RNA sequence: GUGGGAGGCUGAAUAGCGUUUGCUUGGAAACACACGGCUGCGACAGUUCUUUUUAAGAGCUGAUCCAGCAACAAGUCAUUUGCAAGCGGGUAAAGUCCGCGUAAGUGCUAUCUUUUUCCCUAGUGGGGACGCCGGCUAGCUGCUGGCGAGACUCGUAGGCUACCAGCAAUUUCUCUUGUUUUUUCAGAAAUGGAAAAUUAAAAGAUUGAAAUCGGCCUCUGGCACACAGCUUCUAUAAGUCCAAUACGCUGUAGGUUCUUUUUCGGAAGAGCUGAAACUCAAUGCGGAUUAUUGGCCCACCAC
Numbered sequence: 001g002u003g004g005g006a007g008g009c010u011g012a013a014u015a016g017c018g019u020u021u022g023c024u025u026g027g028a029a030a031c032a033c034a035c036g037g038c039u040g041c042g043a044c045a046g047u048u049c050u051u052u053u054u055a056a057g058a059g060c061u062g063a064u065c066c067a068g069c070a071a072c073a074a075g076u077c078a079u080u081u082g083c084a085a086g087c088g089g090g091u092a093a094a095g096u097c098c099g100c101g102u103a104a105g106u107g108c109u110a111u112c113u114u115u116u117u118c119c120c121u122a123g124u125g126g127g128g129a130c131g132c133c134g135g136c137u138a139g140c141u142g143c144u145g146g147c148g149a150g151a152c153u154c155g156u157a158g159g160c161u162a163c164c165a166g167c168a169a170u171u172u173c174u175c176u177u178g179u180u181u182u183u184u185c186a187g188a189a190a191u192g193g194a195a196a197a198u199u200a201a202a203a204g205a206u207u208g209a210a211a212u213c214g215g216c217c218u219c220u221g222g223c224a225c226a227c228a229g230c231u232u233c234u235a236u237a238a239g240u241c242c243a244a245u246a247c248g249c250u251g252u253a254g255g256u257u258c259u260u261u262u263u264c265g266g267a268a269g270a271g272c273u274g275a276a277a278c279u280c281a282a283u284g285c286g287g288a289u290u291a292u293u294g295g296c297c298c299a300c301c302a303c
Stems, first nucleotide, its partner, number of pairs: 001303004007297003013252003022087005097287005106224004117129004131147006155220001157218005174205003254273007
Rfam assigns this 303-nucleotide RNA from Dissophora globulifera to the family "Nuclear RNase P".
A search with the family's covariance model found it, with a score of 60 bits.
Pairs were carried over by alignment from the consensus structure, which is taken from published work.
Gene Ontology terms of the family: tRNA processing, ribonuclease P activity and ribonuclease P complex.
Rfam classes the family as a ribozyme.